[Rfam]
RNA sequence: UACAAUUGCAUAUCCCGAGAGGAUUUAUUGUCUAUAACAAUAAAGAUGCCUUGUAACCGAACUAUUUUAAGGGGGAACAAAGAAUG
Dot-bracket structure: ............((((..((((.(((((((.......)))))))....))))....((............))))))..........
RNA: SAM-III riboswitch aptamer (SMK box)